[Rfam]
Nucleotides: 167
Stems, first nucleotide, its partner, number of pairs: 001067003005064001007062002011058002014055004019050004026043002068091001072088001076084001092133005100126004105121004137159001139157001142154001
Number, partner (000 for none) and nucleotide at each position: 001067g002066g003065g004000u005064g006000c007062u008061u009000u010000u011058g012057g013000c014055u015054a016053u017052c018000a019050a020049c021048c022047g023000a024000a025000a026043g027042c028000a029000u030000a031000a032000c033000g034000u035000a036000a037000g038000u039000u040000u041000u042027g043026u044000a045000g046000a047022c048021g049020g050019u051000a052017g053016a054015u055014a056000a057012c058011u059000a060000a061008a062007a063000a064005c065003c066002c067001c068091g069000a070000a071000a072088g073000u074000a075000a076084a077000u078000u079000u080000u081000c082000a083000u084076u085000c086000a087000c088072u089000a090000a091068c092133g093132a094131g095130g096129c097000u098000u099000u100126a101125g102124a103123u104000a105121u106120g107119u108118a109000c110000u111000u112000c113000a114000a115000c116000a117000a118108u119107a120106c121105g122000g123103a124102u125101c126100u127000u128000a129096g130095u131094c132093u133092c134000u135000a136000u137159u138000u139157u140000a141000a142154u143000a144000a145000g146000a147000g148000g149000c150000a151000a152000g153000u154142a155000a156000a157139a158000u159137g160000c161000u162000a163000a164000a165000a166000a167000a
This 167-nucleotide sequence from Aliivibrio salmonicida belongs to the Rfam family "sok antitoxin (CssrC)". The source organism's lineage runs through Bacteria, Pseudomonadati, Vibrionales, Vibrionaceae and Aliivibrio salmonicida. The sequence is in the family's curated seed alignment. The literature on the family includes a 2007 paper in Mol Microbiol by Kawano et al., "An antisense RNA controls synthesis of an SOS-induced toxin evolved from an antitoxin". By type it is an antitoxin RNA. The family's consensus secondary structure is taken from published work. Gene Ontology term of the family: mRNA binding.